Shown here is a 90-nucleotide RNA from Dendrobium nobile, a member of the family "Small nucleolar RNA snoR26".
The literature on the family includes a 2001 paper in RNA by Brown et al., "Multiple snoRNA gene clusters from Arabidopsis".
The family's RNA type in Rfam is C/D-box small nucleolar RNA.
[Rfam]
RNA sequence: UCAGCAUCAAUGAUGAUAAACUUCAUAUGUUAUCCUUGCACUUUGAUGUUCAGUGAAGAAACUCAUGGGGAAUGAUCUUCUGAGAUGCUG
Numbered sequence: 001u002c003a004g005c006a007u008c009a010a011u012g013a014u015g016a017u018a019a020a021c022u023u024c025a026u027a028u029g030u031u032a033u034c035c036u037u038g039c040a041c042u043u044u045g046a047u048g049u050u051c052a053g054u055g056a057a058g059a060a061a062c063u064c065a066u067g068g069g070g071a072a073u074g075a076u077c078u079u080c081u082g083a084g085a086u087g088c089u090g
Stems, first nucleotide, its partner, number of pairs: 002090007